The record is a 169-nucleotide RNA sequence from Galemys pyrenaicus, which matches "Interferon gamma 5' UTR regulatory element" in Rfam. A search with the family's covariance model found it, with a score of 134 bits.

[Rfam]
RNA sequence: CAUUUUUCUAAUCAUCUGUAGAUCAGCUAUUAGAAAAGAAAGAUCAGCUAAGCCCGUUGGACCUGAUCAACUUAAUACAGGAGCUACUGAUUGCAACUACUUCGAACUAACUCUCUCUGAAACAAUGAAGUAUACAAGCUGUAUCUUAGCUUUGCAGAUUUGUGUGAUU
Numbered sequence: 001c002a003u004u005u006u007u008c009u010a011a012u013c014a015u016c017u018g019u020a021g022a023u024c025a026g027c028u029a030u031u032a033g034a035a036a037a038g039a040a041a042g043a044u045c046a047g048c049u050a051a052g053c054c055c056g057u058u059g060g061a062c063c064u065g066a067u068c069a070a071c072u073u074a075a076u077a078c079a080g081g082a083g084c085u086a087c088u089g090a091u092u093g094c095a096a097c098u099a100c101u102u103c104g105a106a107c108u109a110a111c112u113c114u115c116u117c118u119g120a121a122a123c124a125a126u127g128a129a130g131u132a133u134a135c136a137a138g139c140u141g142u143a144u145c146u147u148a149g150c151u152u153u154g155c156a157g158a159u160u161u162g163u164g165u166g167a168u169u
Stems, first nucleotide, its partner, number of pairs: 009069001011067004015120002018117001020114003028104001032101002035098001042092006051085003057080003121169002125165003130144005148159001150157002

From the family's description: This family represents a pseudoknot containing stem-loop structure found in the 5' UTR of interferon (IFN) gamma mRNA. This structure is thought to be involved in translational regulation and the pseudoknot has been found to activate PKR which is known to be a translational inhibitor. A reference for the family is Ben-Asouli et al. (2002), "Human interferon-gamma mRNA autoregulates its translation through a pseudoknot that activates the interferon-inducible protein kinase PKR", Cell. The source organism's lineage runs through Eukaryota, Opisthokonta, Theria, Boreoeutheria and Galemys. Pairs were carried over by alignment from the consensus structure, which is taken from published work.